[Rfam]
RNA sequence: UGGUAAAAAUAUCAGUUUGGUCAUAUAUCGCUCUAAUAUGGUGAGCAGUUUCUACCACAAACCGUAAAUUUGUGACUAUGGCGGUUCAUUUGAAUUUU
Dot-bracket structure: .................(.((((((....((((.........)))).........((((((.......))))))..)))))).)..............
RNA: Purine riboswitch aptamer
Organism: Firmicutes bacterium CAG:345